[Rfam]
RNA sequence: AAUAUAAAUCGGCAAAGUAGGGGAAAUCCUAUGACGCAAAACUAUAGGGUCUUUAAAAUGACAGCCAGUUGCAGUU
Numbered sequence: 001a002a003u004a005u006a007a008a009u010c011g012g013c014a015a016a017g018u019a020g021g022g023g024a025a026a027u028c029c030u031a032u033g034a035c036g037c038a039a040a041a042c043u044a045u046a047g048g049g050u051c052u053u054u055a056a057a058a059u060g061a062c063a064g065c066c067a068g069u070u071g072c073a074g075u076u
Stems, first nucleotide, its partner, number of pairs: 012037002017032006040070004047066002049062003
Dot-bracket structure: ...........((...((((((....))))))...))..((((...(((((........)))..))))))......
The family of this 76-nucleotide sequence from Cetobacterium somerae is "c-di-GMP-I riboswitch aptamer". The match comes from Rfam's covariance-model search (59 bits).